[Rfam]
Description
The record is a 65-nucleotide sequence from Menidia menidia, which matches "Selenocysteine insertion sequence 1" in Rfam.
RNA sequence: CUCCCAUUAAUGAAGUCCACAGUGUAAAACCUGCCUGCAGGGGGCUGUGGAUUGAUGCAGGGGAG
Numbered sequence: 001c002u003c004c005c006a007u008u009a010a011u012g013a014a015g016u017c018c019a020c021a022g023u024g025u026a027a028a029a030c031c032u033g034c035c036u037g038c039a040g041g042g043g044g045c046u047g048u049g050g051a052u053u054g055a056u057g058c059a060g061g062g063g064a065g
Stems, first nucleotide, its partner, number of pairs: 001065005015052009031040003

The match comes from Rfam's covariance-model search (43 bits).
From the family's description: The incorporation of selenocysteine into a protein sequence is directed by an in-frame UGA codon (usually a stop codon) within the coding region of the mRNA. Selenoprotein mRNAs contain a conserved secondary structure in the 3' UTR that is required for the distinction of UGA stop from UGA selenocysteine. The selenocysteine insertion sequence (SECIS) is around 60 nt in length and adopts a hairpin structure which is sufficiently well-defined and conserved to act as a computational screen for selenoprotein genes.
By type it is a cis-regulatory element.